[Rfam]
RNA: Glycine riboswitch aptamer
Organism: Phyllobacterium myrsinacearum
RNA sequence: UGUCAGUUUGCGGGAGAGUGUCGUGCAUGGAAAUGUGCAGGCCACCGAAGGGGAAAUCGCCCGAAAUCUCUCAGGUACCAGGAACCGCAAACCGGGA
Numbered sequence: 001u002g003u004c005a006g007u008u009u010g011c012g013g014g015a016g017a018g019u020g021u022c023g024u025g026c027a028u029g030g031a032a033a034u035g036u037g038c039a040g041g042c043c044a045c046c047g048a049a050g051g052g053g054a055a056a057u058c059g060c061c062c063g064a065a066a067u068c069u070c071u072c073a074g075g076u077a078c079c080a081g082g083a084a085c086c087g088c089a090a091a092c093c094g095g096g097a
Base pairs, nucleotide, nucleotide: 006092007091008090009089010088011087012086013085020042021041022040044076045075046074047072048071051070052069053068057064058063